[Rfam]
RNA sequence: GGAUGCUCUGAAGACCUGCUCUCUAGGCUUAUGUACGGAGGACACUGGUUUCUCACGGGCCCUUGGUCGCCCGCCUAGGGGAAAGUCCCCGGACCGCUGGCAGAGAGUGCCGGGCGCUAUCGCGCCUUCGCACGCCCCCAUCUCACGCAGUUGCCGCCGAGACGCCUCCGGGCCGAGCGGGUGAGCGCGGGGCGGGCUUCUCGUCACGGCCACAGAUACGCAGGUAGUGCGCAGGCGCACUAACAGAACGGGGCUCACUCUCAGGCCAUC
Number, nucleotide and partner (000 for none) at each position: 001g000002g270003a269004u268005g267006c000007u265008c264009u263010g262011a261012a000013g000014a225015c224016c223017u222018g221019c220020u000021c000022u079023c078024u077025a076026g075027g074028c073029u000030u000031a000032u000033g000034u000035a000036c000037g000038g054039a053040g052041g051042a050043c000044a000045c000046u000047g000048g000049u000050u042051u041052c040053u039054c038055a000056c000057g000058g000059g000060c000061c000062c000063u000064u000065g000066g000067u000068c000069g000070c000071c000072c000073g028074c027075c026076u025077a024078g023079g022080g000081g000082a000083a000084a255085g254086u000087c253088c252089c251090c250091g000092g000093a000094c000095c000096g000097c000098u000099g111100g110101c109102a108103g000104a000105g000106a000107g000108u102109g101110c100111c099112g127113g126114g125115c124116g123117c122118u000119a000120u000121c000122g117123c116124g115125c114126c113127u112128u000129c196130g000131c194132a000133c000134g000135c000136c192137c191138c190139c189140a000141u187142c185143u184144c183145a182146c000147g000148c000149a000150g000151u000152u000153g000154c180155c179156g178157c177158c000159g000160a000161g000162a000163c000164g173165c172166c171167u000168c000169c000170g000171g166172g165173c164174c000175g000176a000177g157178c156179g155180g154181g000182u145183g144184a143185g142186c000187g141188c000189g139190g138191g137192g136193c000194g131195g000196g129197c000198u000199u000200c000201u000202c000203g000204u000205c000206a000207c000208g000209g000210c000211c000212a000213c000214a000215g000216a000217u000218a000219c000220g019221c018222a017223g016224g015225u014226a000227g240228u239229g238230c237231g236232c000233a000234g000235g000236c231237g230238c229239a228240c227241u000242a000243a000244c000245a000246g000247a000248a000249c000250g090251g089252g088253g087254c085255u084256c000257a000258c000259u000260c000261u011262c010263a009264g008265g007266c000267c005268a004269u003270c002
Rfam assigns this 270-nucleotide sequence from Semnornis frantzii to the family "RNase MRP". NCBI's taxonomy places the organism under Eukaryota, Opisthokonta, Archosauria, Dinosauria, Semnornis. Pairs were carried over by alignment from the consensus structure, which is taken from published work.